[Rfam]
RNA sequence: UCGUGCUAAGCGGGGAGGUAGCGGUGCCCUUUUCUCGCAAUCCGCUAUAGCGAGGCCGAAUUCCUUACCCGAGGUCUUUCAACUGUGAGGUCUGACCUGUGCAAGUGGUGUUGACACCCGGGUUCUGCGCAACGGAAACCCGCAAACCCUGUCAGGUCCGGAAGGAAGCAGCAGUAAGCGGCCCCUUCCGUGUGCCGCAGAGUCGCCUGGGUCGAGCAAACUGCACAGGUAACGCUCAUGGUUGUUAGAUCGAAGGAAGGUGCACGG
Numbered sequence: 001u002c003g004u005g006c007u008a009a010g011c012g013g014g015g016a017g018g019u020a021g022c023g024g025u026g027c028c029c030u031u032u033u034c035u036c037g038c039a040a041u042c043c044g045c046u047a048u049a050g051c052g053a054g055g056c057c058g059a060a061u062u063c064c065u066u067a068c069c070c071g072a073g074g075u076c077u078u079u080c081a082a083c084u085g086u087g088a089g090g091u092c093u094g095a096c097c098u099g100u101g102c103a104a105g106u107g108g109u110g111u112u113g114a115c116a117c118c119c120g121g122g123u124u125c126u127g128c129g130c131a132a133c134g135g136a137a138a139c140c141c142g143c144a145a146a147c148c149c150u151g152u153c154a155g156g157u158c159c160g161g162a163a164g165g166a167a168g169c170a171g172c173a174g175u176a177a178g179c180g181g182c183c184c185c186u187u188c189c190g191u192g193u194g195c196c197g198c199a200g201a202g203u204c205g206c207c208u209g210g211g212u213c214g215a216g217c218a219a220a221c222u223g224c225a226c227a228g229g230u231a232a233c234g235c236u237c238a239u240g241g242u243u244g245u246u247a248g249a250u251c252g253a254a255g256g257a258a259g260g261u262g263c264a265c266g267g
Stems, first nucleotide, its partner, number of pairs: 001267006010056002012030004017025001019023001034054005063260004068256002073251005080244010093231002097228006105221002108217002116212008124201006130192002133190005140181004149174004157166003
This 267-nucleotide RNA from Salsuginibacillus halophilus belongs to the Rfam family "Bacterial large signal recognition particle RNA". The organism belongs to Salsuginibacillus, within Bacteria. For this family Rfam cites "Kinship in the SRP RNA family" (Rosenblad et al., RNA Biol, 2009).